RNA sequence: AAUGACUGUCAUAACGGCCACAGCAGAAGCAUUCACAUCACAGCCCUGUCAGUUCUAACGAAUCUGCGAAUUCUGCU
Numbered sequence: 001a002a003u004g005a006c007u008g009u010c011a012u013a014a015c016g017g018c019c020a021c022a023g024c025a026g027a028a029g030c031a032u033u034c035a036c037a038u039c040a041c042a043g044c045c046c047u048g049u050c051a052g053u054u055c056u057a058a059c060g061a062a063u064c065u066g067c068g069a070a071u072u073c074u075g076c077u
Base pairs, nucleotide, nucleotide: 016045017044018043022077023076024075025074026073027072028071029041050066051065052064053062054061055060

Description:
Shown here is a 77-nucleotide RNA sequence from Alligator mississippiensis, a member of the family "Mammalian CPEB3 ribozyme". NCBI's taxonomy places the organism under Eukaryota, Opisthokonta, Tetrapoda, Alligatorinae, Alligator. Rfam links the family to the GO term RNA nuclease activity. Rfam describes the family as follows. The mammalian CPEB3 ribozyme is a self cleaving RNA located in the second intron of the CPEB3 gene which belongs to a family of genes regulating messenger RNA polyadenylation. This ribozyme is highly conserved and found only in mammals. The base pairs follow the family's consensus structure, which is taken from published work.